The family of this 108-nucleotide RNA from Vibrio nigripulchritudo is "Qrr RNA". Rfam 15.1 lists 148 matches to the family in 70 species. Rfam links the family to the GO term quorum sensing. Rfam classes the family as a small RNA. Taxonomically the source falls in Vibrio (Bacteria, Pseudomonadati, Pseudomonadota, Vibrionales). This family represents a set of small RNAs (the Qrr RNAs) that are thought to be involved in the regulation of quorum sensing in Vibrio species. It is believed that these RNAs, guided by a protein, Hfq, can mediate the destabilisation of the quorum-sensing master regulators LuxR/HapR mRNAs. The base pairs follow the family's consensus structure, which is taken from published work. The match comes from Rfam's covariance-model search (94 bits). For this family Rfam cites "The Small RNA Chaperone Hfq and Multiple Small RNAs Control Quorum Sensing in Vibrio harveyi and Vibrio cholerae" (Lenz et al., Cell, 2004).

[Rfam]
RNA sequence: CGACCCUUUUAAGCCGAGGGUCACCUAGCCAACUGACGUUGUUAGUGAAUGAAUUUGUUCACAAUUGUAUAGCCAGCCGCACUCUAUAUUGCGACUGGCUUUUUUCUU
Numbered sequence: 001c002g003a004c005c006c007u008u009u010u011a012a013g014c015c016g017a018g019g020g021u022c023a024c025c026u027a028g029c030c031a032a033c034u035g036a037c038g039u040u041g042u043u044a045g046u047g048a049a050u051g052a053a054u055u056u057g058u059u060c061a062c063a064a065u066u067g068u069a070u071a072g073c074c075a076g077c078c079g080c081a082c083u084c085u086a087u088a089u090u091g092c093g094a095c096u097g098g099c100u101u102u103u104u105u106c107u108u
Stems, first nucleotide, its partner, number of pairs: 002022005040069003045062007073098004078093003